[Rfam]
Shown here is a 101-nucleotide RNA from Anaeroplasma bactoclasticum, a member of the family "SAM riboswitch aptamer (S box leader)". Taxonomically the source falls in Anaeroplasma (Bacteria, Mycoplasmatota, Mollicutes, Anaeroplasmataceae). Rfam describes the family as follows. The SAM riboswitch is found upstream of a number of genes which code for proteins involved in methionine or cysteine biosynthesis in Gram-positive bacteria. The base pairs follow the family's consensus structure, which is taken from published work.
RNA sequence: AUGUCAUAAAGAUGGUACGAGAGACAAGCUCCAUGACUACCAAGCAACCUCCCUUAAAGGAAAGGUGCUAAAGCUUGAAUGAUGGCAAUAAAUUAUGAUUU
Numbered sequence: 001a002u003g004u005c006a007u008a009a010a011g012a013u014g015g016u017a018c019g020a021g022a023g024a025c026a027a028g029c030u031c032c033a034u035g036a037c038u039a040c041c042a043a044g045c046a047a048c049c050u051c052c053c054u055u056a057a058a059g060g061a062a063a064g065g066u067g068c069u070a071a072a073g074c075u076u077g078a079a080u081g082a083u084g085g086c087a088a089u090a091a092a093u094u095a096u097g098a099u100u101u
Stems, first nucleotide, its partner, number of pairs: 001101001003099006013042005021031003025077004043069004048065002050061003073093001079089002